[Rfam]
RNA sequence: UGUCAAGAGUCUUGGCGCCGUUUGGUGAGUUGAUUUCUUUUGCCUUGUAGAAGGCGAAGGACAAUG
Numbered sequence: 001u002g003u004c005a006a007g008a009g010u011c012u013u014g015g016c017g018c019c020g021u022u023u024g025g026u027g028a029g030u031u032g033a034u035u036u037c038u039u040u041u042g043c044c045u046u047g048u049a050g051a052a053g054g055c056g057a058a059g060g061a062c063a064a065u066g
Stems, first nucleotide, its partner, number of pairs: 009062003012058002016056004021052003024048001027045001029043002032040002
Rfam assigns this 66-nucleotide sequence from Pararhizobium polonicum to the family "S-element". For this family Rfam cites "Two discrete elements are required for the replication of a repABC plasmid: an antisense RNA and a stem-loop structure" (Venkova-Canova et al., Mol Microbiol, 2004). The match comes from Rfam's covariance-model search (67 bits). Rfam describes the family as follows. This family represents a group of S-elements from p42d and related plasmids. The S-element has multiple functions and is believed to act as a negative regulator of repC transcription, be required for efficient replication and act as a translational enhancer of repC. Lineage of the source: Bacteria > Pseudomonadati > Alphaproteobacteria > Hyphomicrobiales > Pararhizobium. It is annotated as a cis-regulatory element.